[Rfam]
RNA sequence: UAGUGUGUAGGAGAGGUUUUAAUUAAGCAGUGGAAACAAGGAAACACUUGUUUAAUUAAAACCAAUAU
Numbered sequence: 001u002a003g004u005g006u007g008u009a010g011g012a013g014a015g016g017u018u019u020u021a022a023u024u025a026a027g028c029a030g031u032g033g034a035a036a037c038a039a040g041g042a043a044a045c046a047c048u049u050g051u052u053u054a055a056u057u058a059a060a061a062c063c064a065a066u067a068u
Base pairs, nucleotide, nucleotide: 015063016062017061018060019059022056023055027051028050029049030047031046032045

Notes
The record is a 68-nucleotide RNA, which matches "Cyano-1 RNA" in Rfam.